[Rfam]
Rfam assigns this 364-nucleotide RNA from Colletotrichum karsti to the family "Nuclear RNase P". The literature on the family includes a 1998 paper in Annu Rev Biochem by Frank and Pace, "Ribonuclease P: unity and diversity in a tRNA processing ribozyme". Ribonuclease P (RNase P) is a ubiquitous endoribonuclease, found in archaea, bacteria and eukarya as well as chloroplasts and mitochondria. Its best characterised activity is the generation of mature 5'-ends of tRNAs by cleaving the 5'-leader elements of precursor-tRNAs. Cellular RNase Ps are ribonucleoproteins. RNA from bacterial RNase Ps retains its catalytic activity in the absence of the protein subunit, i.e. it is a ribozyme. Isolated eukaryotic and archaeal RNase P RNA has not been shown to retain its catalytic function, but is still essential for the catalytic activity of the holoenzyme. Although the archaeal and eukaryotic holoenzyme s have a much greater protein content than the bacterial ones, the RNA cores from all the three lineages are homologous -- helices corresponding to P1, P2, P3, P4, and P10/11 are common to all cellular RNase P RNAs. Yet, there is considerable sequence variation, particularly among the eukaryotic RNAs. By type it is a ribozyme. The organism belongs to Colletotrichum boninense species complex, within Eukaryota.

RNA sequence: UUUUGCGCGCAAGCGCGGCCUCUCGAAGCGGGUUCACGCCCGCUUCAGAAUGGCAUAUGAGAAAUUCGGAGUAACAUCUUCACAAACACCCAAUGUCUCCUGCCCUUGGCGGGAUGACGGGUCUGCCCGCGAGGGCCUGGCGUGACUUCACGCUUGCAAUUGGCAUCAGAAAAGCAGGGCCCGCAGCCGCCCUCGUGUAUACCCUCUCGGGGGGAAGACGAGGAUCCGGACUCGGUGACCCUUUGGGAGAGCCGUUGCGAAGAUUGUGCACAGCACUUGAGUGCGAUACGCAGCGUCUGGAUUCCCGGCUGGCUUCGGCUGGUCGGGGGACUUGACAAUUCAAUUCCGAUCAUUCUGUUGAGGA
Numbered sequence: 001u002u003u004u005g006c007g008c009g010c011a012a013g014c015g016c017g018g019c020c021u022c023u024c025g026a027a028g029c030g031g032g033u034u035c036a037c038g039c040c041c042g043c044u045u046c047a048g049a050a051u052g053g054c055a056u057a058u059g060a061g062a063a064a065u066u067c068g069g070a071g072u073a074a075c076a077u078c079u080u081c082a083c084a085a086a087c088a089c090c091c092a093a094u095g096u097c098u099c100c101u102g103c104c105c106u107u108g109g110c111g112g113g114a115u116g117a118c119g120g121g122u123c124u125g126c127c128c129g130c131g132a133g134g135g136c137c138u139g140g141c142g143u144g145a146c147u148u149c150a151c152g153c154u155u156g157c158a159a160u161u162g163g164c165a166u167c168a169g170a171a172a173a174g175c176a177g178g179g180c181c182c183g184c185a186g187c188c189g190c191c192c193u194c195g196u197g198u199a200u201a202c203c204c205u206c207u208c209g210g211g212g213g214g215a216a217g218a219c220g221a222g223g224a225u226c227c228g229g230a231c232u233c234g235g236u237g238a239c240c241c242u243u244u245g246g247g248a249g250a251g252c253c254g255u256u257g258c259g260a261a262g263a264u265u266g267u268g269c270a271c272a273g274c275a276c277u278u279g280a281g282u283g284c285g286a287u288a289c290g291c292a293g294c295g296u297c298u299g300g301a302u303u304c305c306c307g308g309c310u311g312g313c314u315u316c317g318g319c320u321g322g323u324c325g326g327g328g329g330a331c332u333u334g335a336c337a338a339u340u341c342a343a344u345u346c347c348g349a350u351c352a353u354u355c356u357g358u359u360g361a362g363g364a
Base pairs, nucleotide, nucleotide: 001364002363003362004361009358010357011356017291028043029042030041031040032039033038067348068347069346070345071344078262079261080260081259125136126135127134128133139154140153141152142151143150156258157257158256159255162253163252164251177242178241179240295336296335297334299332300331